[Rfam]
Rfam assigns this 152-nucleotide RNA from Escherichia coli to the family "STAXI RNA". Lineage of the source: Bacteria > Gammaproteobacteria > Escherichia > Escherichia coli > Escherichia coli O157:H7.
RNA sequence: UGUCGCUUUUGCGACCAGCCAAUGUUCCAGCAGUCUGAGAGGGACGCCUUCGGGUGACUGCCAGCCAAUGUUUCAGCAAUCUGAGAGAAACGCCUUCGGGUGAUUGCAAUAUCCUCGUAGCCUGAAAGAGGAUGCCUUUAUGGUGGUACAUC
Numbered sequence: 001u002g003u004c005g006c007u008u009u010u011g012c013g014a015c016c017a018g019c020c021a022a023u024g025u026u027c028c029a030g031c032a033g034u035c036u037g038a039g040a041g042g043g044a045c046g047c048c049u050u051c052g053g054g055u056g057a058c059u060g061c062c063a064g065c066c067a068a069u070g071u072u073u074c075a076g077c078a079a080u081c082u083g084a085g086a087g088a089a090a091c092g093c094c095u096u097c098g099g100g101u102g103a104u105u106g107c108a109a110u111a112u113c114c115u116c117g118u119a120g121c122c123u124g125a126a127a128g129a130g131g132a133u134g135c136c137u138u139u140a141u142g143g144u145g146g147u148a149c150a151u152c
Base pairs, nucleotide, nucleotide: 002015003014004013005012006011024045025044026043027042028041030061031060032059033058034057035056046055047054048053070091071090072089073088074087076107077106078105079104080103081102092101093100094099111133112132113131114130115129117149118148119147121146122145134144135143136142
It is one of the family's seed sequences. By type it is a small RNA.